[Rfam]
The record is a 79-nucleotide RNA from Pseudidiomarina taiwanensis, which matches "antisense RNA of dnaA mRNA" in Rfam. Taxonomically the source falls in Pseudidiomarina (Bacteria, Pseudomonadota, Gammaproteobacteria, Alteromonadales).
RNA sequence: UGGCGUCUUUCUUGUGCGCCAUAAUGCCAUUACCGACGGCGUGCAGCAGGUGGGUUUUACCUAAUCCGGUGCCACCAUA
Numbered sequence: 001u002g003g004c005g006u007c008u009u010u011c012u013u014g015u016g017c018g019c020c021a022u023a024a025u026g027c028c029a030u031u032a033c034c035g036a037c038g039g040c041g042u043g044c045a046g047c048a049g050g051u052g053g054g055u056u057u058u059a060c061c062u063a064a065u066c067c068g069g070u071g072c073c074a075c076c077a078u079a
Stems, first nucleotide, its partner, number of pairs: 004041004009036002014030003018027002049076004054072002059070003
Pairs were carried over by alignment from the consensus structure, which was predicted with RNAfold.